The family of this 265-nucleotide sequence from Lederbergia galactosidilytica is "BsrG". For this family Rfam cites "Against the mainstream: the membrane-associated type I toxin BsrG from Bacillus subtilis interferes with cell envelope biosynthesis without increasing membrane permeability" (Jahn et al., Mol Microbiol, 2015). The family's consensus secondary structure was predicted with WAR. Taxonomically the source falls in Lederbergia (Bacteria, Bacillota, Bacilli, Caryophanales). Rfam describes the family as follows. bsrE, bsrG and bsrH pair through intermolecular interactions with antisense sRNAs. They form type I toxin/antitoxin system that includes an mRNA encoding for a short, toxic peptide (bsrE, bsrG and bsrH) and an antitoxin that is comprised of an antisense RNA. bsrG encodes a 39-amino-acid toxin, and the 180 nucleotide antisense sRNA called SR4 acts as the antitoxin (they overlap by 123 nucleotides). SR4 interaction with the 3'UTR of bsrG RNA promotes bsrG degradation and inhibits its translation.
RNA sequence: GACAAUAGCAUAUUGGAUAACUCAAGGGUGGUUAGCACACUCCCGAAAGGGGGUGAUGCUUUAUGACAGUUGCAGAAUCAUUGAUGCUUAUGGUAAGUUUUGGAGCGUUAAUUGUUGCAAUUAUGUCAGAUAAAAAUAACAAAAAAUAAAAUCCACCCUUGAGUUUGCGGCUCGUUUCGGUGGAUUUUAUCUGCUAACAUUCGUGCUGAUCCCCCUUGCAGGGAACCUAGCUAUUGUAUAGGCUGGAGGUGUUACAGCACCUUCA
Numbered sequence: 001g002a003c004a005a006u007a008g009c010a011u012a013u014u015g016g017a018u019a020a021c022u023c024a025a026g027g028g029u030g031g032u033u034a035g036c037a038c039a040c041u042c043c044c045g046a047a048a049g050g051g052g053g054u055g056a057u058g059c060u061u062u063a064u065g066a067c068a069g070u071u072g073c074a075g076a077a078u079c080a081u082u083g084a085u086g087c088u089u090a091u092g093g094u095a096a097g098u099u100u101u102g103g104a105g106c107g108u109u110a111a112u113u114g115u116u117g118c119a120a121u122u123a124u125g126u127c128a129g130a131u132a133a134a135a136a137u138a139a140c141a142a143a144a145a146a147u148a149a150a151a152u153c154c155a156c157c158c159u160u161g162a163g164u165u166u167g168c169g170g171c172u173c174g175u176u177u178c179g180g181u182g183g184a185u186u187u188u189a190u191c192u193g194c195u196a197a198c199a200u201u202c203g204u205g206c207u208g209a210u211c212c213c214c215c216u217u218g219c220a221g222g223g224a225a226c227c228u229a230g231c232u233a234u235u236g237u238a239u240a241g242g243c244u245g246g247a248g249g250u251g252u253u254a255c256a257g258c259a260c261c262u263u264c265a
Base pairs, nucleotide, nucleotide: 002237003236004235005234007232008231009230014209016207018205019204021163022162023161024160025159026158027157028156030153031152032151033150038055039054040053041052042051043050044049065127066126067125068124078093079092080091103118105116173193174192210225212223213222244265245264246263247262248261249260250259251258252257